[Rfam]
RNA sequence: AAUGAGCACUAGGGGAGCUGGUAAGGCCAGCUGAGAUUAAGACCCAUCGCAGUCUUUGACCCUUGGAACCUGAUCUGGUUUAGACCAGCGUAGGGAAGUCGCGACUGAUCCUU
Numbered sequence: 001a002a003u004g005a006g007c008a009c010u011a012g013g014g015g016a017g018c019u020g021g022u023a024a025g026g027c028c029a030g031c032u033g034a035g036a037u038u039a040a041g042a043c044c045c046a047u048c049g050c051a052g053u054c055u056u057u058g059a060c061c062c063u064u065g066g067a068a069c070c071u072g073a074u075c076u077g078g079u080u081u082a083g084a085c086c087a088g089c090g091u092a093g094g095g096a097a098g099u100c101g102c103g104a105c106u107g108a109u110c111c112u113u
Base pairs, nucleotide, nucleotide: 008099009098010097011063012062013061014060016057017031018030019029020028021027039056040055041054042053069094070093071092072091075088076087077086078085
Rfam assigns this 113-nucleotide sequence from Pullulanibacillus camelliae to the family "TPP riboswitch aptamer (THI element)".
It scores 73 bits against the family's covariance model.
Taxonomically the source falls in Pullulanibacillus (Bacteria, Bacillati, Bacilli, Sporolactobacillaceae).
Pairs were carried over by alignment from the consensus structure, which is taken from published work.